The family of this 142-nucleotide sequence from Bacillus anthracis is "c-di-AMP riboswitch aptamer (ydaO/yuaA leader)". The sequence is in the family's curated seed alignment. The pairing is the family consensus, mapped onto this sequence. From the family's description: This family represents a conserved RNA structure found upstream of the ydaO and yuaA genes in Bacillus subtilis and related genes in other bacteria. Taxonomically the source falls in Bacillus anthracis (Bacteria, Caryophanales, Bacillaceae, Bacillus).

RNA sequence: UAAAACCUUUUGCUGAGUCCAAAUUUUGGAGCGGGGGAACCACUUUUGUAGCUAUGCUACUUGGGGCGAAUCUUUUUUAAGUAGGGAACUCUCACUUCCCGAGUCCGACAGCUAACCUCGUAAGCGUAAUGGGAGAGGAAGG
Numbered sequence: 001u002a003a004a005a006c007c008u009u010u011u012g013c014u015g016a017g018u019c020c021a022a023a024u025u026u027u028g029g030a031g032c033g034g035g036g037g038a039a040c041c042a043c044u045u046u047u048g049u050a051g052c053u054a055u056g057c058u059a060c061u062u063g064g065g066g067c068g069a070a071u072c073u074u075u076u077u078u079a080a081g082u083a084g085g086g087a088a089c090u091c092u093c094a095c096u097u098c099c100c101g102a103g104u105c106c107g108a109c110a111g112c113u114a115a116c117c118u119c120g121u122a123a124g125c126g127u128a129a130u131g132g133g134a135g136a137g138g139a140a141g142g
Base pairs, nucleotide, nucleotide: 011126012125013124014123018030019029020028031121032120033119034118035117036116041063042062064106065105066104072081073080074079084100085099086098087097